A member of the RNA family "Bacterial large subunit ribosomal RNA" from Chloroherpeton thalassium, 232 nucleotides of a longer RNA. The sequence is in the family's curated seed alignment.
RNA sequence: GAGUUACUGGUAUGUCGCAAGGGUAAGACUCUAUGAGUUGUAUCCGUAGCGAAAGCAAGUUUGAAUAGAGCGUUAAGUGACAUGCCGUAUACGCGAAACCGUGUGAUCUAUCCUUGGCCAGGAUGAAGUAUGGGUAAAACUAUAUGGAGGUCCGAACUAUUGUGGGUUGAAAACCGCUUGGAUGAGCUGAGGAUAGGGGUGAAAGGCUAAUCAAACUCGGUGAUAGCUCGUA
Numbered sequence: 001g002a003g004u005u006a007c008u009g010g011u012a013u014g015u016c017g018c019a020a021g022g023g024u025a026a027g028a029c030u031c032u033a034u035g036a037g038u039u040g041u042a043u044c045c046g047u048a049g050c051g052a053a054a055g056c057a058a059g060u061u062u063g064a065a066u067a068g069a070g071c072g073u074u075a076a077g078u079g080a081c082a083u084g085c086c087g088u089a090u091a092c093g094c095g096a097a098a099c100c101g102u103g104u105g106a107u108c109u110a111u112c113c114u115u116g117g118c119c120a121g122g123a124u125g126a127a128g129u130a131u132g133g134g135u136a137a138a139a140c141u142a143u144a145u146g147g148a149g150g151u152c153c154g155a156a157c158u159a160u161u162g163u164g165g166g167u168u169g170a171a172a173a174c175c176g177c178u179u180g181g182a183u184g185a186g187c188u189g190a191g192g193a194u195a196g197g198g199g200u201g202a203a204a205g206g207c208u209a210a211u212c213a214a215a216c217u218c219g220g221u222g223a224u225a226g227c228u229c230g231u232a
Base pairs, nucleotide, nucleotide: 005089006088007087009086010085011084012083013082014081015080016079017078018077021045022044023043024042027039028038029037049056050055059071060070061069062068092230093229095227099220100219101218103216104215108196109195110194111193112192113191114190115189116188117187118186119184121153122152123151124150128145129144130143131142132141133140157181158180159179162177163176164175165174198208199207200206

The source organism's lineage runs through Bacteria, Pseudomonadati, Chlorobiota, Chlorobiales and Chloroherpeton thalassium.